The family of this 115-nucleotide RNA from Novosphingobium sp. Fuku2-ISO-50 is "Glycine riboswitch aptamer".
Taxonomically the source falls in Novosphingobium (Bacteria, Pseudomonadota, Alphaproteobacteria, Sphingomonadales).
It scores 57 bits against the family's covariance model.

Nucleotides: 115
Base pairs, nucleotide, nucleotide: 006110008108009107010106011105012104013103020059021058022057061094062093063092064090065089068088069087070086074082075081
Number, partner (000 for none) and nucleotide at each position: 001000c002000u003000g004000a005000u006110c007000g008108a009107c010106g011105c012104g013103g014000g015000a016000g017000a018000g019000u020059u021058c022057u023000g024000c025000g026000c027000g028000a029000a030000u031000c032000g033000c034000c035000u036000u037000g038000u039000u040000u041000g042000c043000a044000g045000g046000g047000c048000g049000u050000u051000u052000g053000g054000c055000a056000a057022g058021g059020a060000c061094g062093c063092c064090g065089a066000a067000g068088g069087a070086g071000c072000a073000a074082c075081c076000g077000c078000c079000c080000c081075g082074g083000a084000a085000a086070c087069u088068c089065u090064c091000a092063g093062g094061c095000a096000c097000a098000a099000u100000g101000g102000a103013c104012c105011g106010c107009g108008u109000g110006g111000a112000u113000c114000g115000a